[Rfam]
RNA sequence: AAAGUUCUUCGUUAGGUGAGGCUACUCUACAGACACAGGCCGCUGCCCGGAAAUGUCGAGAGACAGUAACGGGUCAACUGGUACUGCCGAACUAAGGUUUUACCUAAUGCGGCUGAGAACAGGGUUUCUCUAGCUGUAUAGAGCCAAAGCUUGCACGAAUGAAGAAGGCA
Numbered sequence: 001a002a003a004g005u006u007c008u009u010c011g012u013u014a015g016g017u018g019a020g021g022c023u024a025c026u027c028u029a030c031a032g033a034c035a036c037a038g039g040c041c042g043c044u045g046c047c048c049g050g051a052a053a054u055g056u057c058g059a060g061a062g063a064c065a066g067u068a069a070c071g072g073g074u075c076a077a078c079u080g081g082u083a084c085u086g087c088c089g090a091a092c093u094a095a096g097g098u099u100u101u102a103c104c105u106a107a108u109g110c111g112g113c114u115g116a117g118a119a120c121a122g123g124g125u126u127u128c129u130c131u132a133g134c135u136g137u138a139u140a141g142a143g144c145c146a147a148a149g150c151u152u153g154c155a156c157g158a159a160u161g162a163a164g165a166a167g168g169c170a
Stems, first nucleotide, its partner, number of pairs: 005166006011156002013095001015151003020145003025141002028138005039113005045074005054065004080104004086098003115130003

The family of this 170-nucleotide RNA sequence from Desulfoscipio geothermicus is "M-box riboswitch aptamer (ykoK leader)". Lineage of the source: Bacteria > Bacillati > Bacillota > Desulfoscipio > Desulfoscipio geothermicus. From the family's description: M-box riboswitch, also know as ykoK leader is described as a metaloregulatory RNA that sense divalent metals and function as a genetic control element of genes related to divalent metal transport in bacteria. It was first reported upstream of the B.subtilis ykoK gene and genes with related functions in other bacteria. The match comes from Rfam's covariance-model search (143 bits). Gene Ontology terms of the family: response to magnesium ion and regulation of gene expression. Rfam 15.1 lists 1,095 matches to the family in 932 species.